[Rfam]
RNA sequence: AAUAAAAGAGGGAAUGAUCGUCUCCCAAAGUUGAAAUAAACUUGAACCGCUUAAAGCUGAUGACUUCUACCUGUUU
Numbered sequence: 001a002a003u004a005a006a007a008g009a010g011g012g013a014a015u016g017a018u019c020g021u022c023u024c025c026c027a028a029a030g031u032u033g034a035a036a037u038a039a040a041c042u043u044g045a046a047c048c049g050c051u052u053a054a055a056g057c058u059g060a061u062g063a064c065u066u067c068u069a070c071c072u073g074u075u076u
Stems, first nucleotide, its partner, number of pairs: 010026004016067002020064003049057002
The record is a 76-nucleotide sequence from Jeotgalibaca sp. PTS2502, which matches "Fluoride riboswitch aptamer (crcB RNA motif)" in Rfam. A search with the family's covariance model found it, with a score of 40 bits. The family has 289 seed sequences and 2,293 matches in Rfam 15.1. The organism belongs to Jeotgalibaca, within Bacteria.